A member of the RNA family "Singlet oxygen resistance RNA X" from Tropicimonas sp. IMCC6043, 75 nucleotides long. The source organism's lineage runs through Bacteria, Pseudomonadati, Pseudomonadota, Rhodobacterales and Tropicimonas.
Nucleotides: 075
Base pairs, nucleotide, nucleotide: 008029009028010027011026012025013024014023049069050068051067052066053065054064055063056062
Number, partner (000 for none) and nucleotide at each position: 001000c002000c003000c004000c005000u006000g007000g008029u009028c010027g011026c012025g013024u014023c015000g016000g017000g018000g019000u020000u021000a022000u023014g024013g025012c026011g027010u028009g029008g030000c031000a032000a033000c034000c035000u036000c037000c038000c039000u040000g041000u042000u043000g044000g045000a046000c047000u048000g049069g050068c051067c052066c053065g054064g055063g056062c057000u058000u059000u060000a061000u062056g063055c064054c065053c066052g067051g068050g069049c070000u071000u072000u073000u074000u075000u

Rfam's curators write: SorX (RSs2461)like SorY is a singlet oxygen induced sRNA that counteracts oxidative stress by targeting mRNA for a transporter in Rhodobacter. It also has an impact on resistance against organic hydroperoxides. It targets SD sequence of potA mRNA via an aSD sequence. By type it is a small RNA.